[Rfam]
RNA sequence: AUUAAGAGCGGAGGCGCAACCAAGAUUAGUAGCUUCUCUUAUUGAUGAGGCGGAAAAGAAGCGAAAGGCGAGGUUGCCGAAGGGGUAUAAAAGUAGCCUCAACUUUUAUAACCCCUGGGUAUGUAGGGAAUACCUACAUAACUGUCACGUUUUGUCCCAACGUGGAGAGCCGCUAAAAUA
Numbered sequence: 001a002u003u004a005a006g007a008g009c010g011g012a013g014g015c016g017c018a019a020c021c022a023a024g025a026u027u028a029g030u031a032g033c034u035u036c037u038c039u040u041a042u043u044g045a046u047g048a049g050g051c052g053g054a055a056a057a058g059a060a061g062c063g064a065a066a067g068g069c070g071a072g073g074u075u076g077c078c079g080a081a082g083g084g085g086u087a088u089a090a091a092a093g094u095a096g097c098c099u100c101a102a103c104u105u106u107u108a109u110a111a112c113c114c115c116u117g118g119g120u121a122u123g124u125a126g127g128g129a130a131u132a133c134c135u136a137c138a139u140a141a142c143u144g145u146c147a148c149g150u151u152u153u154g155u156c157c158c159a160a161c162g163u164g165g166a167g168a169g170c171c172g173c174u175a176a177a178a179u180a
Base pairs, nucleotide, nucleotide: 007174008173009172010171011170016077017076018075019074020073021072024069032062033061034060035059036058037057039055081116082115083114084113085112086111087109088108089107090106091105092104093103094102117143118142120140121139122138123137124136125135126134127133145165146164147163148162149161150160151159
Source information: The family of this 180-nucleotide RNA from Defluviitoga tunisiensis is "Lysine riboswitch aptamer". Taxonomically the source falls in Defluviitoga (Bacteria, Thermotogota, Petrotogales, Petrotogaceae).